This 41-nucleotide RNA sequence from Ictidomys tridecemlineatus belongs to the Rfam family "MAT2A 3'UTR stem loop D". A reference for the family is Parker et al. (2011), "New families of human regulatory RNA structures identified by comparative analysis of vertebrate genomes", Genome Res. It is annotated as a cis-regulatory element. Taxonomically the source falls in Ictidomys (Eukaryota, Eumetazoa, Rodentia, Xerinae). Rfam's curators put it in the seed alignment.

RNA sequence: UCUGGGAUAUGGCAUAAGUACAGAGAAUGUCAUUGCUCAGA
Numbered sequence: 001u002c003u004g005g006g007a008u009a010u011g012g013c014a015u016a017a018g019u020a021c022a023g024a025g026a027a028u029g030u031c032a033u034u035g036c037u038c039a040g041a
Stems, first nucleotide, its partner, number of pairs: 001041006008035001009033005
Dot-bracket structure: ((((((.((((((...............))))).)))))))